A member of the RNA family "Small nucleolar RNA SNORD53/SNORD92" from Aramus guarauna, 79 nucleotides long. For this family Rfam cites "Site-specific ribose methylation of preribosomal RNA: a novel function for small nucleolar RNAs" (Kiss-Laszlo et al., Cell, 1996). By type it is a C/D-box small nucleolar RNA. Clan: SNORD52 clan. The family has 37 seed sequences and 2,250 matches in Rfam 15.1. The organism belongs to Aramus, within Eukaryota. The match comes from Rfam's covariance-model search (76 bits).
RNA sequence: AUAUGAUGAUGAUACCCAUCCUGGUUUCGCUUUUUGCUGAAUUCCAGUGAAGACUCAUUUCUCUUGGCUGUCUGAGUGU
Numbered sequence: 001a002u003a004u005g006a007u008g009a010u011g012a013u014a015c016c017c018a019u020c021c022u023g024g025u026u027u028c029g030c031u032u033u034u035u036g037c038u039g040a041a042u043u044c045c046a047g048u049g050a051a052g053a054c055u056c057a058u059u060u061c062u063c064u065u066g067g068c069u070g071u072c073u074g075a076g077u078g079u
Base pairs, nucleotide, nucleotide: 001079002078003077004076